Shown here is a 73-nucleotide RNA, a member of the family "RAGATH-18 RNA". Actinobacteria, Firmicutes, Fusobacteria, Thermotogae (1 example).

RNA sequence: ACUGUGGAGUGUACUAGAACUUGUGAGUAGCGUGUCAUUUGUAACCGCCAAAGCGUACACAAUGAAGUAGUAA
Numbered sequence: 001a002c003u004g005u006g007g008a009g010u011g012u013a014c015u016a017g018a019a020c021u022u023g024u025g026a027g028u029a030g031c032g033u034g035u036c037a038u039u040u041g042u043a044a045c046c047g048c049c050a051a052a053g054c055g056u057a058c059a060c061a062a063u064g065a066a067g068u069a070g071u072a073a
Base pairs, nucleotide, nucleotide: 001071002070003069004068005067009060010059011058012057013056022055023054024053030048031047032046034045035044